[Rfam]
RNA: Streptomyces sRNA 4677
RNA sequence: CGCGCCGGUGUCUGGGCCCGUAAAAGAACCCAUAACCCCAGGUACAGAAACCCUUCCCACCCAGCCCAACCCGGCCCGGUGCAGCCGUCGUCACUCACUUGGGUGAUACACGACCGGAAGACUCGCUUCCGCAGCCGCCGCCCAUGCACUCUCGGUGACAACAACCCCAAAAACCCGCAGACAUGCGACGGCCCCCGGCCGGGACUGGCAUCCCGAUCGAGGGCCUGACCAACAAGGAAGAAGCACCUUCCCC
Numbered sequence: 001c002g003c004g005c006c007g008g009u010g011u012c013u014g015g016g017c018c019c020g021u022a023a024a025a026g027a028a029c030c031c032a033u034a035a036c037c038c039c040a041g042g043u044a045c046a047g048a049a050a051c052c053c054u055u056c057c058c059a060c061c062c063a064g065c066c067c068a069a070c071c072c073g074g075c076c077c078g079g080u081g082c083a084g085c086c087g088u089c090g091u092c093a094c095u096c097a098c099u100u101g102g103g104u105g106a107u108a109c110a111c112g113a114c115c116g117g118a119a120g121a122c123u124c125g126c127u128u129c130c131g132c133a134g135c136c137g138c139c140g141c142c143c144a145u146g147c148a149c150u151c152u153c154g155g156u157g158a159c160a161a162c163a164a165c166c167c168c169a170a171a172a173a174c175c176c177g178c179a180g181a182c183a184u185g186c187g188a189c190g191g192c193c194c195c196c197g198g199c200c201g202g203g204a205c206u207g208g209c210a211u212c213c214c215g216a217u218c219g220a221g222g223g224c225c226u227g228a229c230c231a232a233c234a235a236g237g238a239a240g241a242a243g244c245a246c247c248u249u250c251c252c253c
Stems, first nucleotide, its partner, number of pairs: 007233001009231002015076004091106006121156003125152001190225005196219002201214004236251005